This 166-nucleotide RNA sequence from Tetrapisispora phaffii belongs to the Rfam family "Small nucleolar RNA snR161". The base pairs follow the family's consensus structure, which was predicted with WAR. The family is grouped with related families in Rfam's "SNORA44 clan".
RNA sequence: GUCAAUAACUUUAUCCAGUAUCAUUGGCUGUCUAAAUAAAUUUUCUACAUUUUUAUAGUCUCAUUAAUCUGGUAGAAUAAUGGCUUACUUGGACGACUUAAGUUCCGCUUUUGAGCUAUACAAUAGUAUCUAGGUGUUCAUUGGCACUACUGUUAUCCACACAUUU
Number, nucleotide and partner (000 for none) at each position: 001g000002u000003c000004a000005a000006u000007a000008a000009c000010u000011u000012u000013a000014u000015c072016c071017a070018g069019u000020a000021u000022c000023a000024u000025u000026g000027g059028c058029u057030g056031u055032c000033u000034a052035a051036a050037u000038a000039a000040a000041u000042u000043u000044u000045c000046u000047a000048c000049a000050u036051u035052u034053u000054u000055a031056u030057a029058g028059u027060c000061u000062c000063a000064u000065u000066a000067a000068u000069c018070u017071g016072g015073u000074a000075g000076a000077a000078u000079a000080a000081u000082g000083g000084c000085u000086u000087a000088c000089u000090u159091g158092g157093a156094c000095g000096a153097c152098u000099u000100a000101a000102g000103u000104u000105c000106c000107g145108c144109u143110u000111u000112u140113g139114a138115g137116c136117u000118a000119u000120a000121c133122a000123a131124u000125a000126g000127u000128a000129u000130c000131u123132a000133g121134g000135u000136g116137u115138u114139c113140a112141u000142u000143g109144g108145c107146a000147c000148u000149a000150c000151u000152g097153u096154u000155a000156u093157c092158c091159a090160c000161a000162c000163a000164u000165u000166u000